The family of this 87-nucleotide RNA from Juglans regia is "Small nucleolar RNA Z102/R77".
The family's consensus secondary structure was predicted with PFOLD.

RNA sequence: UAAUGAAUAGAAGAUCGAUGUUUCCCUAUCGGCCGCUUGAUUGUCAUGAUGAUGGCAUCCCUAAGUAUUAGUUCUAUCUUAUCACUA
Numbered sequence: 001u002a003a004u005g006a007a008u009a010g011a012a013g014a015u016c017g018a019u020g021u022u023u024c025c026c027u028a029u030c031g032g033c034c035g036c037u038u039g040a041u042u043g044u045c046a047u048g049a050u051g052a053u054g055g056c057a058u059c060c061c062u063a064a065g066u067a068u069u070a071g072u073u074c075u076a077u078c079u080u081a082u083c084a085c086u087a
Base pairs, nucleotide, nucleotide: 002086004084005083039059042057043056044055045054

Rfam classes the family as a C/D-box small nucleolar RNA.
Its family is annotated with nucleolus and RNA processing in the Gene Ontology.